Rfam assigns this 111-nucleotide sequence from Cellulomonas shaoxiangyii to the family "TPP riboswitch aptamer (THI element)". Vitamin B(1) in its active form thiamin pyrophosphate (TPP) is an essential coenzyme that is synthesised by coupling of pyrimidine and thiazole moieties in bacteria. The previously detected thiamin-regulatory element, thi box was extended, resulting in a new, highly conserved RNA secondary structure, the THI element, which is widely distributed in eubacteria and also occurs in some archaea. Analysis of operon structures identified a large number of new candidate thiamin-regulated genes, mostly transporters, in various prokaryotic organisms. The THI element is a riboswitch that directly binds to TPP to regulate gene expression through a variety of mechanisms in archaea, bacteria and eukaryotes. through a variety of mechanisms in archaea, bacteria and eukaryotes.
RNA sequence: CCGCGACCACACGGGAGCCCGCACCAGCGGGCUGAGAGGACGGCUGACGGGCCGUCGACCGUUCGCACCUGUCCGGAUCAUGCCGGCGUAGGGAGUGCCAUGCCUGACGUG
Numbered sequence: 001c002c003g004c005g006a007c008c009a010c011a012c013g014g015g016a017g018c019c020c021g022c023a024c025c026a027g028c029g030g031g032c033u034g035a036g037a038g039g040a041c042g043g044c045u046g047a048c049g050g051g052c053c054g055u056c057g058a059c060c061g062u063u064c065g066c067a068c069c070u071g072u073c074c075g076g077a078u079c080a081u082g083c084c085g086g087c088g089u090a091g092g093g094a095g096u097g098c099c100a101u102g103c104c105u106g107a108c109g110u111g
Stems, first nucleotide, its partner, number of pairs: 008097003011062004017032005039056007068092004073086004